[Rfam]
RNA sequence: GGGAGCAGAUGGGGUCCUGGUGGCCCUCGCGGUCUUCAAAACCGUCUGCGGCGCAGUGAUCCUGCGCUGGGUGGGUUCGAUUCCCACAUGCUCCC
Numbered sequence: 001g002g003g004a005g006c007a008g009a010u011g012g013g014g015u016c017c018u019g020g021u022g023g024c025c026c027u028c029g030c031g032g033u034c035u036u037c038a039a040a041a042c043c044g045u046c047u048g049c050g051g052c053g054c055a056g057u058g059a060u061c062c063u064g065c066g067c068u069g070g071g072u073g074g075g076u077u078c079g080a081u082u083c084c085c086a087c088a089u090g091c092u093c094c095c
Base pairs, nucleotide, nucleotide: 001095002094003093004092005091006090007089008087011027012026013025014024015023017022029045030044031043032042033041049069050068051067052066053065072086073085074084075083
Selenocysteine transfer RNA: a 95-nucleotide sequence from Caldinitratiruptor microaerophilus. Its family is annotated with triplet codon-amino acid adaptor activity in the Gene Ontology. The match comes from Rfam's covariance-model search (70 bits). NCBI's taxonomy places the organism under Bacteria, Bacillati, Clostridia, Symbiobacteriaceae, Caldinitratiruptor.